[Rfam]
RNA sequence: UGAUAUGCUCGUAGUAUAGCGAACAGGAUAAAAAAAAGAAGUAUACAAAUGGA
Numbered sequence: 001u002g003a004u005a006u007g008c009u010c011g012u013a014g015u016a017u018a019g020c021g022a023a024c025a026g027g028a029u030a031a032a033a034a035a036a037a038g039a040a041g042u043a044u045a046c047a048a049a050u051g052g053a
Stems, first nucleotide, its partner, number of pairs: 006025002009022003014046004